Rfam assigns this 126-nucleotide sequence from Microcebus murinus to the family "Small nucleolar RNA SNORA25".
RNA sequence: AGCACGUUUCAAAGAGGGAUUGUGGGGAUGUGAAACCAGGAGCUUUUAAUGCUAUGACCAAAGAUUGGAGUUCUGUGUAGGAUGCCAUAGUCACACAAUAGUGCUGUUUCCUGAGGAGAUAUAAGA
Numbered sequence: 001a002g003c004a005c006g007u008u009u010c011a012a013a014g015a016g017g018g019a020u021u022g023u024g025g026g027g028a029u030g031u032g033a034a035a036c037c038a039g040g041a042g043c044u045u046u047u048a049a050u051g052c053u054a055u056g057a058c059c060a061a062a063g064a065u066u067g068g069a070g071u072u073c074u075g076u077g078u079a080g081g082a083u084g085c086c087a088u089a090g091u092c093a094c095a096c097a098a099u100a101g102u103g104c105u106g107u108u109u110c111c112u113g114a115g116g117a118g119a120u121a122u123a124a125g126a
Base pairs, nucleotide, nucleotide: 002059005056006055007054014047015046016045017044018043020041021040023039026037027036072119073118074117076115079112080111081110082109087107088106089105090104092103093102094101

Rfam describes the family as follows. ACA25 is a member of the H/ACA class of snoRNA that guide the sites of modification of uridines to pseudouridines. It scores 98 bits against the family's covariance model. The organism belongs to Microcebus, within Eukaryota.